[Rfam]
RNA sequence: UGUAGGGUAGAAAACCAGCACGGGCGUAGAGGUUUCCUCUCCGCCCGUGCUCGCAUGUUAGGGGCAGAUAAACAAAU
Numbered sequence: 001u002g003u004a005g006g007g008u009a010g011a012a013a014a015c016c017a018g019c020a021c022g023g024g025c026g027u028a029g030a031g032g033u034u035u036c037c038u039c040u041c042c043g044c045c046c047g048u049g050c051u052c053g054c055a056u057g058u059u060a061g062g063g064g065c066a067g068a069u070a071a072a073c074a075a076a077u
Base pairs, nucleotide, nucleotide: 003017005015018050019049020048021047022046023045024044025043026042028040029039030038031037
Dot-bracket structure: ..(.(.........).)(((((((((.((((.....)))).)))))))))...........................
Shown here is a 77-nucleotide sequence from Pseudescherichia vulneris, a member of the family "tpke11". The base pairs follow the family's consensus structure, which was predicted with WAR. It scores 78 bits against the family's covariance model. Rfam links the family to the GO term response to temperature stimulus. In Yersinia located in ICR upstream dnaJ (chaperone)gene.